[Rfam]
RNA sequence: CGCCGUCGCGCGGGAGAGCCUCGAAUUCAGCCAGAUUUCGGGCGCCGAAGGAGCAGCACCUCCCCGUCAAUCUCUCAGGCACCAAGGACCGCGCGAUGAUU
Numbered sequence: 001c002g003c004c005g006u007c008g009c010g011c012g013g014g015a016g017a018g019c020c021u022c023g024a025a026u027u028c029a030g031c032c033a034g035a036u037u038u039c040g041g042g043c044g045c046c047g048a049a050g051g052a053g054c055a056g057c058a059c060c061u062c063c064c065c066g067u068c069a070a071u072c073u074c075u076c077a078g079g080c081a082c083c084a085a086g087g088a089c090c091g092c093g094c095g096a097u098g099a100u101u
Stems, first nucleotide, its partner, number of pairs: 006096008020042006044080003047076002051074003058067002
Dot-bracket structure: .....((((((((......((((((...........)))))).(((((..(((....((......))....))))).)))........)))))))).....
RNA: Glycine riboswitch aptamer
Organism: Nocardia camponoti